[Rfam]
The record is an 85-nucleotide sequence from Cloacibacillus evryensis, which matches "c-di-GMP-I riboswitch aptamer" in Rfam. Rfam's curators write: GEMM was predicted in a large-scale screen for bacterial structured RNA regulatory elements.
Nucleotides: 085
Base pairs, nucleotide, nucleotide: 012038013037017033018031019030020029021028022027041079042078043077044076048075049074050071051070052069058065059064
Number, partner (000 for none) and nucleotide at each position: 001000a002000a003000a004000a005000g006000u007000a008000a009000a010000a011000g012038g013037c014000a015000a016000g017033c018031c019030c020029g021028u022027u023000g024000a025000a026000a027022g028021a029020c030019g031018g032000a033017g034000c035000a036000c037013g038012c039000a040000a041079a042078a043077c044076u045000a046000u047000a048075g049074g050071g051070u052069c053000u054000u055000a056000c057000c058065c059064c060000g061000u062000c063000a064059g065058g066000g067000a068000u069052g070051a071050c072000a073000g074049c075048c076044a077043g078042u079041u080000a081000c082000c083000u084000u085000c